Rfam assigns this 68-nucleotide RNA from Cadophora sp. M221 to the family "bZIP non canonical Hac1/Xbp1 intron". The base pairs follow the family's consensus structure, which was predicted with RNAfold. About the family: bZIP intron RNA is a non-canonical intron that was first reported in HAC1 gene in yeast and XBP1 gene in Metazoa.
[Rfam]
RNA sequence: AAUUCUUCCGACUUGACACAACAUCCUGCCGCGAUGUUGUGCGACCUGCCGUGUCAGUCGGAAGAACC
Numbered sequence: 001a002a003u004u005c006u007u008c009c010g011a012c013u014u015g016a017c018a019c020a021a022c023a024u025c026c027u028g029c030c031g032c033g034a035u036g037u038u039g040u041g042c043g044a045c046c047u048g049c050c051g052u053g054u055c056a057g058u059c060g061g062a063a064g065a066a067c068c
Stems, first nucleotide, its partner, number of pairs: 003066005009060005020038006043055003
Lineage of the source: Eukaryota > saccharomyceta > leotiomyceta > Ploettnerulaceae > Cadophora. The family's RNA type in Rfam is small RNA. A search with the family's covariance model found it, with a score of 46 bits. Rfam 15.1 lists 1,325 matches to the family in 1,320 species.